[Rfam]
RNA sequence: AAGUGAGGUAGAGGAGCGGUCUUUAACAGUCUGUAGGGGAGCUUGAGAAGCUAUGAAGCUACGGAGAAGGAAAGACUGCCGAAGCUUAUAAUAUACUCGAUAUUAUUUGCUGGGUCUACAGUUAAGAGCUGUAGGACUGUCUCAUUAAGCUACCCGGUUUAAUGAGAUGUGCUAUCUCAUCA
Numbered sequence: 001a002a003g004u005g006a007g008g009u010a011g012a013g014g015a016g017c018g019g020u021c022u023u024u025a026a027c028a029g030u031c032u033g034u035a036g037g038g039g040a041g042c043u044u045g046a047g048a049a050g051c052u053a054u055g056a057a058g059c060u061a062c063g064g065a066g067a068a069g070g071a072a073a074g075a076c077u078g079c080c081g082a083a084g085c086u087u088a089u090a091a092u093a094u095a096c097u098c099g100a101u102a103u104u105a106u107u108u109g110c111u112g113g114g115u116c117u118a119c120a121g122u123u124a125a126g127a128g129c130u131g132u133a134g135g136a137c138u139g140u141c142u143c144a145u146u147a148a149g150c151u152a153c154c155c156g157g158u159u160u161a162a163u164g165a166g167a168u169g170u171g172c173u174a175u176c177u178c179a180u181c182a
Stems, first nucleotide, its partner, number of pairs: 006177006016079009031064006083111003088106007112138002115135008140167010